[Rfam]
RNA: ALIL pseudoknot
Organism: Paracoccus alkenifer
RNA sequence: AGCUUAUUUUGCGCAGGCGGAACUCGACCGCCCACUGAAGCGAUGAUCACGUUCAUUGAUGAUCAGCGCUUUGUCUACGGCGUCGAGUCGAUCUGCAGGGUUUUGCCGAUCGCGCCG
Numbered sequence: 001a002g003c004u005u006a007u008u009u010u011g012c013g014c015a016g017g018c019g020g021a022a023c024u025c026g027a028c029c030g031c032c033c034a035c036u037g038a039a040g041c042g043a044u045g046a047u048c049a050c051g052u053u054c055a056u057u058g059a060u061g062a063u064c065a066g067c068g069c070u071u072u073g074u075c076u077a078c079g080g081c082g083u084c085g086a087g088u089c090g091a092u093c094u095g096c097a098g099g100g101u102u103u104u105g106c107c108g109a110u111c112g113c114g115c116c117g
Base pairs, nucleotide, nucleotide: 016032017031018030019029020028078117079116080115081114082113089112090111092109093108095106096105097104098103